Record summary:
A member of the RNA family "Nuclear RNase P" from Glareola pratincola, 333 nucleotides long. Rfam links the family to the GO terms ribonuclease P complex, ribonuclease P activity and tRNA processing. It is annotated as a ribozyme. Ribonuclease P (RNase P) is a ubiquitous endoribonuclease, found in archaea, bacteria and eukarya as well as chloroplasts and mitochondria. Clan: RNaseP clan. A search with the family's covariance model found it, with a score of 156 bits. NCBI's taxonomy places the organism under Eukaryota, Eumetazoa, Teleostomi, Theropoda, Glareola.

RNA sequence: UCCGGGGGAAGCUCACCGCCGAGGCCACGCACGGGGUGCGCGUCACCCAGGCCCCGCCUCGGGGAAGGUCUGAGGGAAGGGCCGCCCGCGGCCCCAGCAGGGCCCCGCCCGCGAGGGGCGGGUGAGCCACCAGCAAGGGGGGGCGCCGCGCUGCCGUUCAACGGGCCGAUCCGUGGGCAGGAGAAGCCGAUGCGGGUUUUCCCCCCCGUGGGAGCCCCCGGCGGAUGCUCGUGGCCCCGCGGUGCUUUGAGACAGACUCACGGCCGGCGACUGAGUCCAAUGGGUGAGGUGGGGCAUCGCCCCACAACCUAAUUCAGACUACUCUCCCCCGGA
Dot-bracket structure: ((((..(((..((((((..(((((.........(((((.....)))))........)))))........[[[[[.....((((......(((((.....)))))((((((.....))))))(((((.(.............(((((((((.......................................................................................)))))))))........).))))))))).................))))))(((((((...))))))).......]]]]].......)))..))))